The record is a 123-nucleotide sequence from Paucilactobacillus oligofermentans, which matches "Enterococcus sRNA 68 (Lacto-3 RNA)" in Rfam.
The literature on the family includes a 2015 paper in RNA by Innocenti et al., "Whole-genome mapping of 5' RNA ends in bacteria by tagged sequencing: a comprehensive view in Enterococcus faecalis".
Nucleotides: 123
Base pairs, nucleotide, nucleotide: 017059018058019057020056021038022037023036024035025034026033039050040049041048042047070099071098072097073096074095080094081093082092083091084090111122112121113120114119
Number, partner (000 for none) and nucleotide at each position: 001000u002000g003000c004000g005000a006000u007000g008000a009000g010000u011000c012000g013000a014000a015000u016000g017059g018058u019057c020056a021038g022037g023036c024035a025034a026033u027000c028000u029000u030000u031000u032000g033026a034025u035024u036023g037022u038021u039050u040049c041048g042047c043000g044000c045000a046000a047042g048041c049040g050039a051000u052000u053000u054000a055000a056020u057019g058018a059017c060000a061000u062000u063000c064000a065000c066000a067000u068000g069000g070099g071098a072097c073096a074095c075000a076000u077000a078000u079000u080094c081093c082092u083091g084090a085000c086000g087000u088000a089000u090084u091083c092082a093081g094080g095074g096073u097072g098071u099070u100000c101000g102000g103000c104000g105000g106000u107000a108000g109000g110000a111122g112121a113120u114119u115000g116000u117000g118000g119114a120113a121112u122111c123000a